[Rfam]
RNA sequence: UUCGCCUAAAACAAUGAAAGCCCUACCUCUCUUUCAUCCUUACGGUUCCUAGACCGUGCCAGUUUGAAUUUAGGAUGUUUCAUAAGAA
Numbered sequence: 001u002u003c004g005c006c007u008a009a010a011a012c013a014a015u016g017a018a019a020g021c022c023c024u025a026c027c028u029c030u031c032u033u034u035c036a037u038c039c040u041u042a043c044g045g046u047u048c049c050u051a052g053a054c055c056g057u058g059c060c061a062g063u064u065u066g067a068a069u070u071u072a073g074g075a076u077g078u079u080u081c082a083u084a085a086g087a088a
Stems, first nucleotide, its partner, number of pairs: 034067003039062002041058007
The family of this 88-nucleotide RNA sequence from Niallia nealsonii is "BsrC". The base pairs follow the family's consensus structure, which was predicted with CMfinder. For this family Rfam cites "Novel small RNA-encoding genes in the intergenic regions of Bacillus subtilis" (Saito et al., Gene, 2008). About the family: The 301 nucleotide sequence from Kouji Nakamura has been trimmed to a highly conserved ~85 nucleotide long core to form this family. A search with the family's covariance model found it, with a score of 90 bits. The source organism's lineage runs through Bacteria, Bacilli, Caryophanales, Bacillaceae and Niallia.